Shown here is a 136-nucleotide sequence from Scleropages formosus, a member of the family "Small nucleolar RNA SNORA84". By type it is an H/ACA-box small nucleolar RNA. A reference for the family is Marker et al. (2002), "Experimental RNomics: identification of 140 candidates for small non-messenger RNAs in the plant Arabidopsis thaliana", Curr Biol. The organism belongs to Scleropages, within Eukaryota. Pairs were carried over by alignment from the consensus structure, which was predicted with WAR.
[Rfam]
RNA sequence: GCCUGGUGGUUCCUGGACUCAGCUGCACUGUGCUGAUAUUUCUGGGUUUGAAAACAGGCACAUAUUAACUCUGAUUUUUUUUGCAUGGGGGCUGUAUUUCCAAGCAGCCACCAUAGGCCCGGUUUCAGAGACAGUA
Numbered sequence: 001g002c003c004u005g006g007u008g009g010u011u012c013c014u015g016g017a018c019u020c021a022g023c024u025g026c027a028c029u030g031u032g033c034u035g036a037u038a039u040u041u042c043u044g045g046g047u048u049u050g051a052a053a054a055c056a057g058g059c060a061c062a063u064a065u066u067a068a069c070u071c072u073g074a075u076u077u078u079u080u081u082u083g084c085a086u087g088g089g090g091g092c093u094g095u096a097u098u099u100c101c102a103a104g105c106a107g108c109c110a111c112c113a114u115a116g117g118c119c120c121g122g123u124u125u126c127a128g129a130g131a132c133a134g135u136a
Base pairs, nucleotide, nucleotide: 001059002058003057004056007050008049011046012045013044015042016041017040019036020035021034022033023032071128073126074125077122078121083118084117085114086113087112088111090109091108092107093106094105095104